[Rfam]
RNA sequence: UGCAAUGAUGGUGUAAUUUGCGUCUGACCCAGUGAACAGUGACAGUUGCCUGCUGUCAUAUGCUGUCACAGGGUUUUGAUGAGAUUUAAUUCUGAGCA
Number, nucleotide and partner (000 for none) at each position: 001u098002g097003c096004a000005a000006u000007g000008a000009u000010g000011g000012u000013g000014u000015a000016a000017u000018u000019u000020g000021c081022g080023u079024c078025u000026g000027a000028c000029c000030c071031a000032g069033u068034g067035a000036a000037c000038a000039g063040u062041g057042a056043c055044a054045g053046u000047u000048g000049c000050c000051u000052g000053c045054u044055g043056u042057c041058a000059u000060a000061u000062g040063c039064u000065g000066u000067c034068a033069c032070a000071g030072g000073g000074u000075u000076u000077u000078g024079a023080u022081g021082a000083g000084a000085u000086u000087u000088a000089a000090u000091u000092c000093u000094g000095a000096g003097c002098a001
The family of this 98-nucleotide RNA from Sphaeramia orbicularis is "Small nucleolar RNA SNORD16".
The base pairs follow the family's consensus structure, which was predicted with PFOLD.
A search with the family's covariance model found it, with a score of 81 bits.
For this family Rfam cites "A novel small nucleolar RNA (U16) is encoded inside a ribosomal protein intron and originates by processing of the pre-mRNA" (Fragapane et al., EMBO J, 1993).
Lineage of the source: Eukaryota > Metazoa > Actinopteri > Euacanthomorphacea > Sphaeramia.
The family's RNA type in Rfam is C/D-box small nucleolar RNA.